A member of the RNA family "Mammalian CPEB3 ribozyme" from Crocodylus porosus, 76 nucleotides long. About the family: The mammalian CPEB3 ribozyme is a self cleaving RNA located in the second intron of the CPEB3 gene which belongs to a family of genes regulating messenger RNA polyadenylation. Taxonomically the source falls in Crocodylus (Eukaryota, Metazoa, Gnathostomata, Teleostomi). The base pairs follow the family's consensus structure, which is taken from published work.
RNA sequence: AGGUGCAAAUUCAAGGCCAUAGCAGAAGUGCUCACAGCAUGGCCUGUCACAUUCCAAGGAAUAUAUGAAUUCUCCU
Numbered sequence: 001a002g003g004u005g006c007a008a009a010u011u012c013a014a015g016g017c018c019a020u021a022g023c024a025g026a027a028g029u030g031c032u033c034a035c036a037g038c039a040u041g042g043c044c045u046g047u048c049a050c051a052u053u054c055c056a057a058g059g060a061a062u063a064u065a066u067g068a069a070u071u072c073u074c075c076u
Stems, first nucleotide, its partner, number of pairs: 015044004021076002024073004028040003049064001051062004